[Rfam]
RNA: Streptococcus sRNA SpF59 (ldcC RNA)
RNA sequence: UGACCACCCGCCGCAGACGGGUAGAGGCCAUACGGACAGCCGGGUCAAAUGCCGA
Dot-bracket structure: ((((((((((.......)))))....................)))))........
Numbered sequence: 001u002g003a004c005c006a007c008c009c010g011c012c013g014c015a016g017a018c019g020g021g022u023a024g025a026g027g028c029c030a031u032a033c034g035g036a037c038a039g040c041c042g043g044g045u046c047a048a049a050u051g052c053c054g055a
Stems, first nucleotide, its partner, number of pairs: 001047005006022005